[Rfam]
RNA sequence: AGCCGUGUGGUGAGAACAGAGCGAACUAUUCUUUCGCCUUUUACUAAAGAAUACCGUGUUCUCGCCACUCGUAGCGGCAUACGCCUAUUUUUGGAGGGCUUUCUUCCUUUUGUGGAU
Numbered sequence: 001a002g003c004c005g006u007g008u009g010g011u012g013a014g015a016a017c018a019g020a021g022c023g024a025a026c027u028a029u030u031c032u033u034u035c036g037c038c039u040u041u042u043a044c045u046a047a048a049g050a051a052u053a054c055c056g057u058g059u060u061c062u063c064g065c066c067a068c069u070c071g072u073a074g075c076g077g078c079a080u081a082c083g084c085c086u087a088u089u090u091u092u093g094g095a096g097g098g099c100u101u102u103c104u105u106c107c108u109u110u111u112g113u114g115g116a117u
Base pairs, nucleotide, nucleotide: 003077004076005075006074008067009066010065011064012063013062014061015060016059017058018057027053028052029051030050031049032048033047034046102116103115104114